This 84-nucleotide RNA from Citrobacter youngae belongs to the Rfam family "Enterobacterial sRNA STnc230". The source organism's lineage runs through Bacteria, Pseudomonadota, Citrobacter, Citrobacter freundii complex and Citrobacter youngae.
RNA sequence: UCAUCUCGCUUUCCUGAGCACUGAUGAAAGUCAUCAUUGAACAUAACAAAAGUCUCCCAUUCUUGGGAGACUUUUUGGACGGUU
Numbered sequence: 001u002c003a004u005c006u007c008g009c010u011u012u013c014c015u016g017a018g019c020a021c022u023g024a025u026g027a028a029a030g031u032c033a034u035c036a037u038u039g040a041a042c043a044u045a046a047c048a049a050a051a052g053u054c055u056c057c058c059a060u061u062c063u064u065g066g067g068a069g070a071c072u073u074u075u076u077g078g079a080c081g082g083u084u
Stems, first nucleotide, its partner, number of pairs: 047077005052071007
It is annotated as a small RNA.